[Rfam]
RNA sequence: GUGGGCUACGGAGACAUGCGGCCGAUCGGGGUGUGGGGCAAGCUGGUUGGCUCUCUGUGCGCCAUCGCUGGCGUGCUCACGAUCGCGCUUCCUGUCCCUGUCAUUGUGUCUAAU
Numbered sequence: 001g002u003g004g005g006c007u008a009c010g011g012a013g014a015c016a017u018g019c020g021g022c023c024g025a026u027c028g029g030g031g032u033g034u035g036g037g038g039c040a041a042g043c044u045g046g047u048u049g050g051c052u053c054u055c056u057g058u059g060c061g062c063c064a065u066c067g068c069u070g071g072c073g074u075g076c077u078c079a080c081g082a083u084c085g086c087g088c089u090u091c092c093u094g095u096c097c098c099u100g101u102c103a104u105u106g107u108g109u110c111u112a113a114u
Base pairs, nucleotide, nucleotide: 001114002113004111005110007108008107009106010105011104013102014101015100016099018097021095022094037077038076039075040074049063050062051061
RNA: Potassium channel RNA editing signal